[Rfam]
RNA: Mammalian CPEB3 ribozyme
RNA sequence: AGAGGUUCAAGGCCAUAACAGAAGUGUCAUGGUACAGCCCUGUCAGAUUCAAGUAAAUCUGUGAAUUCAGCU
Numbered sequence: 001a002g003a004g005g006u007u008c009a010a011g012g013c014c015a016u017a018a019c020a021g022a023a024g025u026g027u028c029a030u031g032g033u034a035c036a037g038c039c040c041u042g043u044c045a046g047a048u049u050c051a052a053g054u055a056a057a058u059c060u061g062u063g064a065a066u067u068c069a070g071c072u
Stems, first nucleotide, its partner, number of pairs: 011039003017072001019070001021068003024035003044061006